[Rfam]
Nucleotides: 087
Stems, first nucleotide, its partner, number of pairs: 003084005009079003014074001015072006027060005032054003036050001
Number, partner (000 for none) and nucleotide at each position: 001000g002000c003084u004083c005082c006081u007080g008000c009079a010078a011077g012000c013000a014074u015072a016071g017070a018069g019068u020067g021000c022000a023000u024000g025000c026000a027060c028059u029058u030057u031056g032054g033053g034052a035000g036050a037000g038000u039000g040000a041000a042000g043000a044000a045000a046000a047000u048000a049000a050036u051000a052034u053033u054032u055000a056031c057030a058029a059028a060027g061000c062000c063000c064000a065000u066000a067020c068019a069018c070017u071016u072015u073000u074014a075000c076000c077011c078010u079009u080007c081006a082005g083004g084003a085000a086000a087000g